[Rfam]
RNA sequence: CGACAUAUUUUUUGACAGAACCAUAAAAAGUUAGCCGAAAAAUACUCUCGGCCAAAAUUUUUUUUGCUUCUUGCGCUACGUCAGUUUACUUACUACAAGUAAUGGGUAGUAUGUUCGUCGGCUAUUUCCUCACUCUGGGGUUA
Numbered sequence: 001c002g003a004c005a006u007a008u009u010u011u012u013u014g015a016c017a018g019a020a021c022c023a024u025a026a027a028a029a030g031u032u033a034g035c036c037g038a039a040a041a042a043u044a045c046u047c048u049c050g051g052c053c054a055a056a057a058u059u060u061u062u063u064u065u066g067c068u069u070c071u072u073g074c075g076c077u078a079c080g081u082c083a084g085u086u087u088a089c090u091u092a093c094u095a096c097a098a099g100u101a102a103u104g105g106g107u108a109g110u111a112u113g114u115u116c117g118u119c120g121g122c123u124a125u126u127u128c129c130u131c132a133c134u135c136u137g138g139g140g141u142u143a
Base pairs, nucleotide, nucleotide: 034076035075038072039071041069049066050065051064080122081121082120084118085117088114089113091111092110093109094108095107096106098103126143129140130139131138
A member of the RNA family "Pseudomonas sRNA P14" from Pseudomonas agarici, 143 nucleotides long.
A reference for the family is Livny et al. (2006), "Identification of 17 Pseudomonas aeruginosa sRNAs and prediction of sRNA-encoding genes in 10 diverse pathogens using the bioinformatic tool sRNAPredict2", Nucleic Acids Res.
Rfam classes the family as a small RNA.
The base pairs follow the family's consensus structure, which was predicted with WAR.
The source organism's lineage runs through Bacteria, Pseudomonadati, Pseudomonadota, Gammaproteobacteria and Pseudomonas.